[Rfam]
RNA sequence: AGCCCGGUGGUGUAGCGGUCAAGCAUGGCGGGCUUUGGACCCGCAGAUCCGGGGUUCGAAUCCCCGCCGGGCUA
Numbered sequence: 001a002g003c004c005c006g007g008u009g010g011u012g013u014a015g016c017g018g019u020c021a022a023g024c025a026u027g028g029c030g031g032g033c034u035u036u037g038g039a040c041c042c043g044c045a046g047a048u049c050c051g052g053g054g055u056u057c058g059a060a061u062c063c064c065c066g067c068c069g070g071g072c073u074a
Base pairs, nucleotide, nucleotide: 001073002072003071004070005069006068007067010026011025012024013023028044029043030042031041032040050066051065052064053063054062